[Rfam]
RNA: Small nucleolar RNA SNORA33
RNA sequence: AAGCUAGCAGUUAAUCUGCUUAUCUGAAUAUGUUUCUUCAAAAAUCUAGAAAGAGCUGGCAAUAAUGUUGUCAAGUAAUGAGCCUUAAGGACAAGUGACUGUCUUUAAGAUCCCUAAAAAUGGCUACAAUA
Dot-bracket structure: ..(((((.......(.((....................)).).............))))).........((((........(.(((((.(((........))).))))).).........)))).......